[Rfam]
RNA sequence: GGAUCAAUGAUGAGGACUUUAUAUUGUCUUAAAGAGAGGCGAUGACUUAAAAAUCAUGCUCAAUAGCAUUGCACUAUGCCC
Numbered sequence: 001g002g003a004u005c006a007a008u009g010a011u012g013a014g015g016a017c018u019u020u021a022u023a024u025u026g027u028c029u030u031a032a033a034g035a036g037a038g039g040c041g042a043u044g045a046c047u048u049a050a051a052a053a054u055c056a057u058g059c060u061c062a063a064u065a066g067c068a069u070u071g072c073a074c075u076a077u078g079c080c081c
Stems, first nucleotide, its partner, number of pairs: 001081002004078001006075001008073002
RNA: Small nucleolar RNA SNORD115
Organism: Carlito syrichta